[Rfam]
RNA: tRNA
Organism: Desulforamulus reducens
RNA sequence: GGCGGUGUAGCUCAGAUGGUCAGAGCACACGGUUCAUACCCGUGGUGUCACUGGUUCAAAUCCAGUCACCGCUA
Number, nucleotide and partner (000 for none) at each position: 001g073002g072003c071004g070005g069006u068007g067008u000009a000010g026011c025012u024013c023014a000015g000016a000017u000018g000019g000020u000021c000022a000023g013024a012025g011026c010027a000028c044029a043030c042031g041032g040033u000034u000035c000036a000037u000038a000039c000040c032041c031042g030043u029044g028045g000046u000047g000048u000049c000050a066051c065052u064053g063054g062055u000056u000057c000058a000059a000060a000061u000062c054063c053064a052065g051066u050067c007068a006069c005070c004071g003072c002073u001074a000